A member of the RNA family "Small nucleolar RNA snoR136" from Papaver somniferum, 142 nucleotides long. Rfam 15.1 lists 452 matches to the family in 212 species. Gene Ontology terms of the family: nucleolus and RNA processing. It is annotated as an H/ACA-box small nucleolar RNA. Pairs were carried over by alignment from the consensus structure, which was predicted with mfold.
RNA sequence: GCUUAUUUUAUUCUGUGAAUGUUGUUGUAGCUAGGUUUUUCAGUUUUAGUGGCAUAUUUUUAUGGUGAAGCAAUAAAAGAUGUUGCCCUCGCUAUCCGGUGCUUCUUGUUAUGUUGCACUUGGAUGUUGGGUAACUACAUUU
Numbered sequence: 001g002c003u004u005a006u007u008u009u010a011u012u013c014u015g016u017g018a019a020u021g022u023u024g025u026u027g028u029a030g031c032u033a034g035g036u037u038u039u040u041c042a043g044u045u046u047u048a049g050u051g052g053c054a055u056a057u058u059u060u061u062a063u064g065g066u067g068a069a070g071c072a073a074u075a076a077a078a079g080a081u082g083u084u085g086c087c088c089u090c091g092c093u094a095u096c097c098g099g100u101g102c103u104u105c106u107u108g109u110u111a112u113g114u115u116g117c118a119c120u121u122g123g124a125u126g127u128u129g130g131g132u133a134a135c136u137a138c139a140u141u142u
Stems, first nucleotide, its partner, number of pairs: 001071003008065004015059001019055001026054003030050006082135007090126002095124005105113001